[Rfam]
RNA sequence: UGGCGCCCAAAGGUGUGGCGUUGGAUAUGGGGAAGUUCGUGAGGGAAGAGGCGUCUAAGUGUUCGGCUGAAGGAAAAAAAGUGAAAGUCAGUUUGACAAAGAUCGCUGUGGGAGCCUGCUGCGCCGUUCUUAGAGGCACAGUAGCGCCUAAGUAUGGGACAAGAAUUAAGUAGGCAUAAAGUUUUUGUUAAGCAAUUAAAAGAAGCUUUAAAGACAUUGGGAGUAAAGGUUAAGAGUAAUGUUCUUUUUAAGUUUUUUGACUUUAUUAAGGACACCUGUCCAU
Numbered sequence: 001u002g003g004c005g006c007c008c009a010a011a012g013g014u015g016u017g018g019c020g021u022u023g024g025a026u027a028u029g030g031g032g033a034a035g036u037u038c039g040u041g042a043g044g045g046a047a048g049a050g051g052c053g054u055c056u057a058a059g060u061g062u063u064c065g066g067c068u069g070a071a072g073g074a075a076a077a078a079a080a081g082u083g084a085a086a087g088u089c090a091g092u093u094u095g096a097c098a099a100a101g102a103u104c105g106c107u108g109u110g111g112g113a114g115c116c117u118g119c120u121g122c123g124c125c126g127u128u129c130u131u132a133g134a135g136g137c138a139c140a141g142u143a144g145c146g147c148c149u150a151a152g153u154a155u156g157g158g159a160c161a162a163g164a165a166u167u168a169a170g171u172a173g174g175c176a177u178a179a180a181g182u183u184u185u186u187g188u189u190a191a192g193c194a195a196u197u198a199a200a201a202g203a204a205g206c207u208u209u210a211a212a213g214a215c216a217u218u219g220g221g222a223g224u225a226a227a228g229g230u231u232a233a234g235a236g237u238a239a240u241g242u243u244c245u246u247u248u249u250a251a252g253u254u255u256u257u258u259g260a261c262u263u264u265a266u267u268a269a270g271g272a273c274a275c276c277u278g279u280c281c282a283u
Stems, first nucleotide, its partner, number of pairs: 006032003015028003037051002040048001092136003096131001104126001107123005142162001144160001147158004167210003170206002217259001219257006227245003231241002268283001270281004

A member of the RNA family "Mason-Pfizer monkey virus packaging signal" from Sciurus vulgaris, 283 nucleotides long. The base pairs follow the family's consensus structure, which was predicted with PFOLD. About the family: This family represents a group of sequences that are related to the Mason-Pfizer monkey virus (MPMV) packaging signal. The packaging signal is located in the 5' UTR and is required for specific RNA encapsidation. It scores 159 bits against the family's covariance model. On this family, see Mustafa et al., Virus Res 2004: "Mutational analysis of the predicted secondary RNA structure of the Mason-Pfizer monkey virus packaging signal". NCBI's taxonomy places the organism under Eukaryota, Opisthokonta, Vertebrata, Sciurinae, Sciurus.